[Rfam]
RNA sequence: UAAGCAGGACGACCUGUUUACGCAUCAAUCAUACGGGGACGACCCCA
Numbered sequence: 001u002a003a004g005c006a007g008g009a010c011g012a013c014c015u016g017u018u019u020a021c022g023c024a025u026c027a028a029u030c031a032u033a034c035g036g037g038g039a040c041g042a043c044c045c046c047a
Stems, first nucleotide, its partner, number of pairs: 001020008035046004
Background:
This 47-nucleotide RNA from Budvicia aquatica belongs to the Rfam family "Guanidine-II riboswitch aptamer (mini-ykkC)". The match comes from Rfam's covariance-model search (47 bits). The source organism's lineage runs through Bacteria, Pseudomonadati, Pseudomonadota, Gammaproteobacteria and Budvicia.